[Rfam]
RNA sequence: AAUGAUACUUCUGUGUAAGGCACAGCUCGCCGGAAGGCGGGAUAUGUUGUUUCAGGCUGGAAACUGAUGUCUCUUAUAACAUAU
Numbered sequence: 001a002a003u004g005a006u007a008c009u010u011c012u013g014u015g016u017a018a019g020g021c022a023c024a025g026c027u028c029g030c031c032g033g034a035a036g037g038c039g040g041g042a043u044a045u046g047u048u049g050u051u052u053c054a055g056g057c058u059g060g061a062a063a064c065u066g067a068u069g070u071c072u073c074u075u076a077u078a079a080c081a082u083a084u
Stems, first nucleotide, its partner, number of pairs: 011025005026041006042084006049077002054072004
The family of this 84-nucleotide RNA is "dinG RNA". Rfam classes the family as a small RNA.